[Rfam]
RNA sequence: AGAGUCUUUGCAAGGUAAGGUCUAGCCAACCACCUUUAUCGAGUGUUGUGCCGUUACUGGAGACAGUAAAGGUAAAGCGUACACAGAGAAUCCUAUAGACCAUAAGGGAGACCAUAAUCCCUGAAGCACAUUGAGCCCAGUUAAUGUUGCUCUAGAAAUAGAGGAAGCGCAGAUGACGACGUGUUUAACGUCACGGAAGUCAAUACAAAGAAGUCGAUAAAGGCAAGACUUUAGAGGGUCUGCCGGGGUCAAAGAACG
Numbered sequence: 001a002g003a004g005u006c007u008u009u010g011c012a013a014g015g016u017a018a019g020g021u022c023u024a025g026c027c028a029a030c031c032a033c034c035u036u037u038a039u040c041g042a043g044u045g046u047u048g049u050g051c052c053g054u055u056a057c058u059g060g061a062g063a064c065a066g067u068a069a070a071g072g073u074a075a076a077g078c079g080u081a082c083a084c085a086g087a088g089a090a091u092c093c094u095a096u097a098g099a100c101c102a103u104a105a106g107g108g109a110g111a112c113c114a115u116a117a118u119c120c121c122u123g124a125a126g127c128a129c130a131u132u133g134a135g136c137c138c139a140g141u142u143a144a145u146g147u148u149g150c151u152c153u154a155g156a157a158a159u160a161g162a163g164g165a166a167g168c169g170c171a172g173a174u175g176a177c178g179a180c181g182u183g184u185u186u187a188a189c190g191u192c193a194c195g196g197a198a199g200u201c202a203a204u205a206c207a208a209a210g211a212a213g214u215c216g217a218u219a220a221a222g223g224c225a226a227g228a229c230u231u232u233a234g235a236g237g238g239u240c241u242g243c244c245g246g247g248g249u250c251a252a253a254g255a256a257c258g
Stems, first nucleotide, its partner, number of pairs: 012036004019031003023226001025224002039087002043084004047079002049074004054069006132252001133250001135249004140244001169243006175201003180195004206237001210232006
Description:
The record is a 258-nucleotide RNA from Natranaerovirga pectinivora, which matches "Group II catalytic intron D1-D4-6" in Rfam. The family has 174 seed sequences and 1,617 matches in Rfam 15.1. Lineage of the source: Bacteria > Bacillati > Bacillota > Lachnospirales > Natranaerovirga. About the family: Group II introns are found in rRNA, tRNA and mRNA of organelles in fungi, plants and protists, and also in mRNA in bacteria.